[Rfam]
RNA: THF (Tetrahydrofolate) riboswitch aptamer
Organism: Butyrivibrio sp. M55
RNA sequence: UGCAGAGUAGACUGUAAAGCGUCAAGUGCCGGGUGAACAGGGAGUUGUCAUUCGGACGAAGGGUAAUCCGCGGUUUUAUGGUCGCAUCCCGCUGCU
Numbered sequence: 001u002g003c004a005g006a007g008u009a010g011a012c013u014g015u016a017a018a019g020c021g022u023c024a025a026g027u028g029c030c031g032g033g034u035g036a037a038c039a040g041g042g043a044g045u046u047g048u049c050a051u052u053c054g055g056a057c058g059a060a061g062g063g064u065a066a067u068c069c070g071c072g073g074u075u076u077u078a079u080g081g082u083c084g085c086a087u088c089c090c091g092c093u094g095c096u
Base pairs, nucleotide, nucleotide: 002095003094004093005092010083011082012081013080014079015078016077017076018075019074020072021071022070026057027056029055030054031053032052033051034050035049036048040089041088042087044085061069062068063067